[Rfam]
RNA sequence: UAUAUCAGCUGAUAGCUAUGUUAUUAAUUUAAUGUAGAGGAAAGUCCGUGCUAGCACCAACUGAGAUGUUGGUAGUGUUUGUGUUAAACCUAAUAAGUUUAAGCUUAGACGACUAGUGCCACAGAGACGAGUAAAGUGAAACGCGGUAAACUCCACAAGCUAGAAACCCAAAUUUGGUAGGGGAACCAAAACGCGAGAAAUGAAUUAAGUUUUGGAACAUUUUCAAUGUUAGAUAAAUUAUCAGCACCUAUUUUAGGAACAGAACACGGCUUAUGAU
Numbered sequence: 001u002a003u004a005u006c007a008g009c010u011g012a013u014a015g016c017u018a019u020g021u022u023a024u025u026a027a028u029u030u031a032a033u034g035u036a037g038a039g040g041a042a043a044g045u046c047c048g049u050g051c052u053a054g055c056a057c058c059a060a061c062u063g064a065g066a067u068g069u070u071g072g073u074a075g076u077g078u079u080u081g082u083g084u085u086a087a088a089c090c091u092a093a094u095a096a097g098u099u100u101a102a103g104c105u106u107a108g109a110c111g112a113c114u115a116g117u118g119c120c121a122c123a124g125a126g127a128c129g130a131g132u133a134a135a136g137u138g139a140a141a142c143g144c145g146g147u148a149a150a151c152u153c154c155a156c157a158a159g160c161u162a163g164a165a166a167c168c169c170a171a172a173u174u175u176g177g178u179a180g181g182g183g184a185a186c187c188a189a190a191a192c193g194c195g196a197g198a199a200a201u202g203a204a205u206u207a208a209g210u211u212u213u214g215g216a217a218c219a220u221u222u223u224c225a226a227u228g229u230u231a232g233a234u235a236a237a238u239u240a241u242c243a244g245c246a247c248c249u250a251u252u253u254u255a256g257g258a259a260c261a262g263a264a265c266a267c268g269g270c271u272u273a274u275g276a277u
Base pairs, nucleotide, nucleotide: 004277005276006275007274008245009244010243011242012241013240014239016037017036018035019034020033021032042272043271044270046269047268048267049266050265051163052162053161054160055159056073057072058071059070060069061068079158080157081156082155083154084102085101086100087099088098089097103110104108111153112152116151117150118147119146120145167182168181169180186215187214188213189212190211191210192209216230217229218228219227220226221225247257248256249255250254
About this RNA
Bacterial RNase P class B: a 277-nucleotide RNA sequence from Mycoplasmopsis felis. For this family Rfam cites "Ribonuclease P: unity and diversity in a tRNA processing ribozyme" (Frank and Pace, Annu Rev Biochem, 1998). By type it is a ribozyme. The family is grouped with related families in Rfam's "RNaseP clan". Pairs were carried over by alignment from the consensus structure, which is taken from published work.